[Rfam]
Rfam assigns this 95-nucleotide RNA from Campylobacter mucosalis to the family "Selenocysteine transfer RNA". A reference for the family is Mizutani and Goto (2000), "Eukaryotic selenocysteine tRNA has the 9/4 secondary structure", FEBS Lett. It scores 52 bits against the family's covariance model. Its family is annotated with triplet codon-amino acid adaptor activity in the Gene Ontology.
RNA sequence: UGGAGGAUAAAGUAAUCUGGUGGUGCUCACGGACUUCAAAUCCGAUGGCGGGGCGGUUGACCGCUCUGCGGGGAGUUCGAUUCUCUCAUCCUCUC
Numbered sequence: 001u002g003g004a005g006g007a008u009a010a011a012g013u014a015a016u017c018u019g020g021u022g023g024u025g026c027u028c029a030c031g032g033a034c035u036u037c038a039a040a041u042c043c044g045a046u047g048g049c050g051g052g053g054c055g056g057u058u059g060a061c062c063g064c065u066c067u068g069c070g071g072g073g074a075g076u077u078c079g080a081u082u083c084u085c086u087c088a089u090c091c092u093c094u095c
Base pairs, nucleotide, nucleotide: 002094003093004092005091006090007089008088012027015024016023017022030044031043032042033041048069049068050067051066052065053064054063072086073085074084075083